[Rfam]
Nucleotides: 076
Base pairs, nucleotide, nucleotide: 010043011042012041013040014039015038016037017036018035019034025031026030047069048068049067050066051065052064053063054062055061056060
Number, partner (000 for none) and nucleotide at each position: 001000a002000a003000g004000u005000c006000u007000c008000u009000c010043a011042g012041g013040u014039u015038c016037u017036g018035g019034c020000a021000a022000u023000c024000a025031u026030c027000c028000u029000c030026g031025g032000a033000a034019g035018c036017c037016a038015g039014a040013a041012u042011c043010u044000u045000u046000u047069a048068g049067g050066c051065c052064g053063a054062c055061a056060c057000a058000u059000u060056g061055u062054g063053u064052c065051g066050g067049c068048c069047u070000u071000u072000u073000u074000u075000u076000a

The family of this 76-nucleotide RNA from Paraburkholderia monticola is "Burkholderia sRNA 54". Pairs were carried over by alignment from the consensus structure, which was predicted with RNAfold. Rfam describes the family as follows. Identified by RNA-seq, RACE and Northern blot. Strongly expressed in biofilm. For this family Rfam cites "Identification of small RNAs abundant in Burkholderia cenocepacia biofilms reveal putative regulators with a potential role in carbon and iron metabolism" (Sass et al., Sci Rep, 2017).